A member of the RNA family "UnaL2 LINE 3' element" from Salmo salar, 54 nucleotides long.
RNA sequence: UAUGCCCUCUACUGUAAGUCGCUCUGGAUAAGAGCGUCUGCUAAAUUACAAUUU
Numbered sequence: 001u002a003u004g005c006c007c008u009c010u011a012c013u014g015u016a017a018g019u020c021g022c023u024c025u026g027g028a029u030a031a032g033a034g035c036g037u038c039u040g041c042u043a044a045a046u047u048a049c050a051a052u053u054u
Stems, first nucleotide, its partner, number of pairs: 013043001014041003020036006
The literature on the family includes a 2004 paper in RNA by Baba et al., "Solution structure of an RNA stem-loop derived from the 3' conserved region of eel LINE UnaL2". Pairs were carried over by alignment from the consensus structure, which is taken from published work. The match comes from Rfam's covariance-model search (63 bits). Taxonomically the source falls in Salmo (Eukaryota, Bilateria, Actinopteri, Osteoglossocephalai). Gene Ontology term of the family: transposition, RNA-mediated.